[Rfam]
RNA sequence: AGCUUUGCACACUGGCAGUACCAUAGCCAAUGAGGUUUAUCCAAGGCACAAUUAUUGCUAACUCAAAACUUUUCCGAAAGAUAUCAAAUAAGAGAAAAGUAAAAUCAUUCUACUUAUCACAUUCAGAUAAAUAUACGAAUGU
Numbered sequence: 001a002g003c004u005u006u007g008c009a010c011a012c013u014g015g016c017a018g019u020a021c022c023a024u025a026g027c028c029a030a031u032g033a034g035g036u037u038u039a040u041c042c043a044a045g046g047c048a049c050a051a052u053u054a055u056u057g058c059u060a061a062c063u064c065a066a067a068a069c070u071u072u073u074c075c076g077a078a079a080g081a082u083a084u085c086a087a088a089u090a091a092g093a094g095a096a097a098a099g100u101a102a103a104a105u106c107a108u109u110c111u112a113c114u115u116a117u118c119a120c121a122u123u124c125a126g127a128u129a130a131a132u133a134u135a136c137g138a139a140u141g142u
Stems, first nucleotide, its partner, number of pairs: 020052001024048001026047003034042002088117005094111001096109002099105001131142004
RNA: U4 spliceosomal RNA